[Rfam]
Notes:
A member of the RNA family "Molybdenum/Tungsten riboswitch aptamer (Moco RNA motif)" from Zhenpiania hominis, 126 nucleotides long.

RNA sequence: AAUAAAUAAGAGAUCCGAGUCCUGAUCCUCCUUCGCUUUGGCAAGGCAUGGAGGCUGGACCGAUAGGGUUUGUAUGGAAACAUGCAGGCCUCCCGCGUUUUGGAAAGGAUUGAUGCCGAUAGUUCU
Dot-bracket structure: ...........(((((..((((.(..(((((...((((.....))))..)))))).)))).....(((((((((((....)))))))))))((........))...)))))...............